[Rfam]
RNA: TPP riboswitch aptamer (THI element)
RNA sequence: UUGAUUUGCUAGGGGCGCCUUUUGGCUGAGAUGAACCCUUUGAACCUGAUCUAGAUCAUACUAGCGUAGGGAAGCAGUUAAUGAAUACG
Number, nucleotide and partner (000 for none) at each position: 001u000002u000003g000004a000005u000006u077007u076008g075009c074010u073011a039012g038013g037014g036015g000016c033017g026018c025019c024020u000021u000022u000023u000024g019025g018026c017027u000028g000029a000030g000031a000032u000033g016034a000035a000036c014037c013038c012039u011040u000041u000042g000043a000044a000045c070046c069047u068048g067049a000050u000051c064052u063053a062054g061055a000056u000057c000058a000059u000060a000061c054062u053063a052064g051065c000066g000067u048068a047069g046070g045071g000072a000073a010074g009075c008076a007077g006078u000079u000080a000081a000082u000083g000084a000085a000086u000087a000088c000089g000